Glycine riboswitch aptamer: a 96-nucleotide sequence from Rhodococcus gordoniae. Its Rfam clan is "Glycine riboswitch clan". NCBI's taxonomy places the organism under Bacteria, Bacillati, Actinomycetota, Mycobacteriales, Rhodococcus.
RNA sequence: CGCCAUCACGCGGGAGAGACCCGGACACCGAGCCGGGCGCCGAAGGAGCAGCACCUCCCCGUCAAUCUCUCAGGCAACCGGGACCGCGUGAGCUCC
Numbered sequence: 001c002g003c004c005a006u007c008a009c010g011c012g013g014g015a016g017a018g019a020c021c022c023g024g025a026c027a028c029c030g031a032g033c034c035g036g037g038c039g040c041c042g043a044a045g046g047a048g049c050a051g052c053a054c055c056u057c058c059c060c061g062u063c064a065a066u067c068u069c070u071c072a073g074g075c076a077a078c079c080g081g082g083a084c085c086g087c088g089u090g091a092g093c094u095c096c
Stems, first nucleotide, its partner, number of pairs: 006091008020037004039075003042071002046069003053062002